RNA sequence: UCCUCCGAGGAGCGCUGCAACGGGCAACAACGCCCGCCAGGCUCGGAGCGAAGGAAAAAAUCGUAAAAAACCGCGCUCACUCACG
Number, nucleotide and partner (000 for none) at each position: 001u000002c000003c048004u047005c046006c045007g044008a043009g000010g000011a000012g000013c000014g000015c000016u000017g000018c000019a000020a000021c036022g035023g034024g033025c032026a000027a000028c000029a000030a000031c000032g025033c024034c023035c022036g021037c000038c000039a000040g000041g000042c000043u008044c007045g006046g005047a004048g003049c000050g000051a000052a000053g000054g000055a000056a000057a000058a000059a000060a000061u000062c000063g000064u000065a000066a000067a000068a000069a000070a000071c000072c000073g000074c000075g000076c000077u000078c000079a000080c000081u000082c000083a000084c000085g000
Background:
A member of the RNA family "SAH (S-adenosyl-L-homocysteine) riboswitch aptamer" from endosymbiont of Tevnia jerichonana, 85 nucleotides long. The match comes from Rfam's covariance-model search (65 bits). NCBI's taxonomy places the organism under Bacteria, Pseudomonadati, Gammaproteobacteria, sulfur-oxidizing symbionts, endosymbiont of Tevnia jerichonana.